Rfam assigns this 221-nucleotide sequence from Kouleothrix aurantiaca to the family "glmS glucosamine-6-phosphate activated ribozyme aptamer".
Lineage of the source: Bacteria > Chloroflexia > Roseiflexineae > Roseiflexaceae > Kouleothrix.
It scores 45 bits against the family's covariance model.
Rfam describes the family as follows. This entry contains a glucosamine-6-phosphate activated ribozyme that is found in the mRNA for GlmS. GlmS is an enzyme that uses fructose-6-phosphate and glutamine to generate glucosamine-6-phosphate. The ribozyme catalyses self cleavage of the glmS mRNA that is thought to regulate GlmS activity.
RNA sequence: AUCAGCAGCCAAGCGCAUGAGCUGAAGCGCAUGCUUCAGCCGACGAGGUGGAGGUUCCCCGGCGCGAGCCGGGGCUAAUGCGGGCCUGAGUGCAGUAACGGAGCGCUCAGCAGCCGCAAAAAAUCGACAGAUCAGCGGAUGCCUCCCAGGCGCGCCACCGCCUGCAAGCGGCCAGCCAAACCCGCCCGGCGACGAGCGGAACAACGCGGCCAGCAGUGAGC
Numbered sequence: 001a002u003c004a005g006c007a008g009c010c011a012a013g014c015g016c017a018u019g020a021g022c023u024g025a026a027g028c029g030c031a032u033g034c035u036u037c038a039g040c041c042g043a044c045g046a047g048g049u050g051g052a053g054g055u056u057c058c059c060c061g062g063c064g065c066g067a068g069c070c071g072g073g074g075c076u077a078a079u080g081c082g083g084g085c086c087u088g089a090g091u092g093c094a095g096u097a098a099c100g101g102a103g104c105g106c107u108c109a110g111c112a113g114c115c116g117c118a119a120a121a122a123a124u125c126g127a128c129a130g131a132u133c134a135g136c137g138g139a140u141g142c143c144u145c146c147c148a149g150g151c152g153c154g155c156c157a158c159c160g161c162c163u164g165c166a167a168g169c170g171g172c173c174a175g176c177c178a179a180a181c182c183c184g185c186c187c188g189g190c191g192a193c194g195a196g197c198g199g200a201a202c203a204a205c206g207c208g209g210c211c212a213g214c215a216g217u218g219a220g221c
Base pairs, nucleotide, nucleotide: 021040022039023038024037025036026035027034028033050146051145052144053143054142059135061133147164148163149162150161151160152159168214169213171211173209182199183198184197185196187194188193